[Rfam]
RNA sequence: CUGAUUAUUAGCAUCAUUCAUCGAAUGGUGGGUUAGCGCGCGUCCAGUAGCAGUGACACAUUAACCCGCCCCAGAGGCGGGUUUU
Numbered sequence: 001c002u003g004a005u006u007a008u009u010a011g012c013a014u015c016a017u018u019c020a021u022c023g024a025a026u027g028g029u030g031g032g033u034u035a036g037c038g039c040g041c042g043u044c045c046a047g048u049a050g051c052a053g054u055g056a057c058a059c060a061u062u063a064a065c066c067c068g069c070c071c072c073a074g075a076g077g078c079g080g081g082u083u084u085u
Stems, first nucleotide, its partner, number of pairs: 012030006063083008

Description:
Shown here is an 85-nucleotide sequence from Paraburkholderia fynbosensis, a member of the family "Pseudomonas sRNA P9". From the family's description: This small RNA (sRNA) was computationally identified in the genome of the opportunistic pathogen Pseudomonas aeruginosa and its expression verified by northern blot analysis. The match comes from Rfam's covariance-model search (59 bits). The family's consensus secondary structure was predicted with RNAalifold.